Rfam assigns this 105-nucleotide RNA from Nitrosomonas mobilis to the family "Guanidine-I riboswitch aptamer". The match comes from Rfam's covariance-model search (94 bits). Rfam links the family to the GO term regulation of gene expression. The source organism's lineage runs through Bacteria, Betaproteobacteria, Nitrosomonadales, Nitrosomonadaceae and Nitrosomonas. The pairing is the family consensus, mapped onto this sequence.

RNA sequence: AACAAGAAAAACUAGGGUUCCGGCCUAUUUACUUAAGGUGUCUGGUCCGAGAGUUUUUGGUCUCGUUAUAACGAGGCUCCACGGAGGGAUAAAAGCCCGGGAGAU
Number, nucleotide and partner (000 for none) at each position: 001a000002a000003c000004a000005a000006g000007a058008a057009a056010a055011a054012c053013u000014a000015g048016g047017g000018u000019u000020c045021c044022g042023g039024c038025c037026u036027a000028u000029u000030u000031a000032c000033u000034u000035a000036a026037g025038g024039u023040g000041u000042c022043u000044g021045g020046u000047c016048c015049g000050a000051g000052a000053g012054u011055u010056u009057u008058u007059g078060g077061u076062c075063u074064c073065g072066u071067u000068a000069u000070a000071a066072c065073g064074a063075g062076g061077c060078u059079c000080c100081a000082c103083g000084g000085a000086g098087g097088g096089a000090u000091a000092a000093a000094a000095g000096c088097c087098c086099g000100g080101g000102a000103g082104a000105u000